[Rfam]
RNA sequence: ACUCGUCCGUGCAACUGACGCAGAUUAAGGGGGAUCACCCCCGGGAAGUACGGAACUAUAUGCUUAAAGUCGUGCGUCUGGGCUGUUCUU
Numbered sequence: 001a002c003u004c005g006u007c008c009g010u011g012c013a014a015c016u017g018a019c020g021c022a023g024a025u026u027a028a029g030g031g032g033g034a035u036c037a038c039c040c041c042c043g044g045g046a047a048g049u050a051c052g053g054a055a056c057u058a059u060a061u062g063c064u065u066a067a068a069g070u071c072g073u074g075c076g077u078c079u080g081g082g083c084u085g086u087u088c089u090u
Stems, first nucleotide, its partner, number of pairs: 006054007015045002017078005030041004068084004
This 90-nucleotide RNA sequence from Geovibrio thiophilus belongs to the Rfam family "ZMP/ZTP riboswitch aptamer (pfl RNA motif)". A search with the family's covariance model found it, with a score of 52 bits.